[Rfam]
Nucleotides: 079
Base pairs, nucleotide, nucleotide: 021038022037023036025034026033027032058078059077060076061075062074063073064072065071066070
Number, partner (000 for none) and nucleotide at each position: 001000u002000g003000a004000a005000a006000u007000c008000u009000u010000a011000a012000a013000a014000c015000a016000a017000a018000u019000c020000a021038g022037g023036g024000c025034c026033u027032u028000c029000g030000a031000u032027a033026a034025g035000a036023c037022c038021c039000a040000u041000g042000g043000g044000c045000u046000u047000g048000a049000a050000u051000u052000u053000u054000u055000g056000g057000a058078u059077g060076c061075u062074c063073c064072u065071a066070c067000u068000u069000g070066g071065u072064a073063g074062g075061a076060g077059c078058a079000a
A member of the RNA family "SmY spliceosomal RNA" from Haemonchus placei, 79 nucleotides long. The base pairs follow the family's consensus structure, which is taken from published work. The source organism's lineage runs through Eukaryota, Protostomia, Ecdysozoa, Rhabditomorpha and Haemonchus.